[Rfam]
RNA sequence: UGAGCUGGCUGGGUGACGGCCGGUUCCUUCGGGAACUGGAGGAAAGUCCGGACUUCGCAGGGCACAGCACCUGAUGCAAAUCAGGGCGGGGCGACCCGACGGAAAGUGCAACAGAGAGUAGACCGCCACGUUUCGGCGUGGUAAGGGUGAAACGGUGGGGUAAGAGCCCACCAGCGGCUUGGGUGACCAUGUCGGCUUGGUAAACCCUGCUGGAAGCAAGGCCAAAUAGGGAGGGGUUGAGGUGGCCCGCUGACCCUCCGGGUAGGCCGCAUGAGCUAAAUCGUCACACAAAGACAGAAUCCGGCUUAUAGGCCAGCUCAGUAC
Numbered sequence: 001u002g003a004g005c006u007g008g009c010u011g012g013g014u015g016a017c018g019g020c021c022g023g024u025u026c027c028u029u030c031g032g033g034a035a036c037u038g039g040a041g042g043a044a045a046g047u048c049c050g051g052a053c054u055u056c057g058c059a060g061g062g063c064a065c066a067g068c069a070c071c072u073g074a075u076g077c078a079a080a081u082c083a084g085g086g087c088g089g090g091g092c093g094a095c096c097c098g099a100c101g102g103a104a105a106g107u108g109c110a111a112c113a114g115a116g117a118g119u120a121g122a123c124c125g126c127c128a129c130g131u132u133u134c135g136g137c138g139u140g141g142u143a144a145g146g147g148u149g150a151a152a153c154g155g156u157g158g159g160g161u162a163a164g165a166g167c168c169c170a171c172c173a174g175c176g177g178c179u180u181g182g183g184u185g186a187c188c189a190u191g192u193c194g195g196c197u198u199g200g201u202a203a204a205c206c207c208u209g210c211u212g213g214a215a216g217c218a219a220g221g222c223c224a225a226a227u228a229g230g231g232a233g234g235g236g237u238u239g240a241g242g243u244g245g246c247c248c249g250c251u252g253a254c255c256c257u258c259c260g261g262g263u264a265g266g267c268c269g270c271a272u273g274a275g276c277u278a279a280a281u282c283g284u285c286a287c288a289c290a291a292a293g294a295c296a297g298a299a300u301c302c303g304g305c306u307u308a309u310a311g312g313c314c315a316g317c318u319c320a321g322u323a324c
Base pairs, nucleotide, nucleotide: 001320002319003318004317005316006315007314008313009312010311011309013287014286015285016284017283018282020039021038022037023036024035025034026033027032044307045306046305048304049303050302051301052300053216054215055214056213060248061247062246063245065212066211067210068209069208070085071084072083073082074081086100087098088097089096090095101207102206106205107204108201109200123146124145125142126141127140128139129138130137131136154172155171156170157169158168159167174196175194176193177192178191180189181188182187220268221267222266223265230259231258232257233256234255235254241251242250243249
Dot-bracket structure: (((((((((((.((((((.((((((((....))))))))....[[[.[[[[[((((...[[[[.((((((((((......)))))(((((....)))).)((...((((.............(((((((((....)))))))..)).......((((((.......)))))).(((((.(((....))).)))).)...))..)))))))))))))...((((......((((((.....(((.]]]])))..)))))).....)))).............))))))............]]]]]]]].).))))))))))....
Rfam assigns this 324-nucleotide RNA from Armatimonadetes bacterium Uphvl-Ar1 to the family "Bacterial RNase P class A". Taxonomically the source falls in Armatimonadota (Bacteria, Bacillati).